[Rfam]
RNA sequence: GCACUCUCUAUCAGAAUGGAUGUCUUGCUGCUAUAAUAGAUAGAGAAGGUUAUAGCAGACUA
Numbered sequence: 001g002c003a004c005u006c007u008c009u010a011u012c013a014g015a016a017u018g019g020a021u022g023u024c025u026u027g028c029u030g031c032u033a034u035a036a037u038a039g040a041u042a043g044a045g046a047a048g049g050u051u052a053u054a055g056c057a058g059a060c061u062a
Stems, first nucleotide, its partner, number of pairs: 007044006029057009
RNA: Coronavirus 3' UTR pseudoknot